[Rfam]
RNA sequence: UCACAUGCGGUGCCGGGGCAAUUGAAGAUUCUGAGUGUUGUAAAAAUCAGAGUCUUUUUGCCCUGGCACCUCAUGGA
Numbered sequence: 001u002c003a004c005a006u007g008c009g010g011u012g013c014c015g016g017g018g019c020a021a022u023u024g025a026a027g028a029u030u031c032u033g034a035g036u037g038u039u040g041u042a043a044a045a046a047u048c049a050g051a052g053u054c055u056u057u058u059u060g061c062c063c064u065g066g067c068a069c070c071u072c073a074u075g076g077a
Base pairs, nucleotide, nucleotide: 001077002076004075005074006073007072009070010069012067013066014065015064016063017062019060020059021058025056026055027054028053029052030051031050032049033048034047036044

The family of this 77-nucleotide RNA sequence from Branchiostoma lanceolatum is "mir-4872 microRNA precursor family". Rfam 15.1 lists 72 matches to the family in 3 species. NCBI's taxonomy places the organism under Eukaryota, Metazoa, Bilateria, Cephalochordata, Branchiostoma. Gene Ontology terms of the family: miRNA-mediated post-transcriptional gene silencing and RISC complex.